[Rfam]
RNA: Bacteroidales-1 6S-Bacteroidales RNA suggested
RNA sequence: GGUUGUAUCGAUUCGAUCGGGAUACUCAUCAAAUAAAAUCGAAAAACCGAGAAUGCUUCUUUUGCUAAUGGCGGGCCACAAACAACCUUCGGGGACAAGCUGUAAAGCCGGUGGAUUACAAAGGCGGAGAGCUCUCAAAUCUUAAUUACUCGGAGUUUCAUCACAUCAUCGGUAUGACCCUUUUU
Numbered sequence: 001g002g003u004u005g006u007a008u009c010g011a012u013u014c015g016a017u018c019g020g021g022a023u024a025c026u027c028a029u030c031a032a033a034u035a036a037a038a039u040c041g042a043a044a045a046a047c048c049g050a051g052a053a054u055g056c057u058u059c060u061u062u063u064g065c066u067a068a069u070g071g072c073g074g075g076c077c078a079c080a081a082a083c084a085a086c087c088u089u090c091g092g093g094g095a096c097a098a099g100c101u102g103u104a105a106a107g108c109c110g111g112u113g114g115a116u117u118a119c120a121a122a123g124g125c126g127g128a129g130a131g132c133u134c135u136c137a138a139a140u141c142u143u144a145a146u147u148a149c150u151c152g153g154a155g156u157u158u159c160a161u162c163a164c165a166u167c168a169u170c171g172g173u174a175u176g177a178c179c180c181u182u183u184u185u
Stems, first nucleotide, its partner, number of pairs: 055132003059129001061128006069120002076114004086093002099108003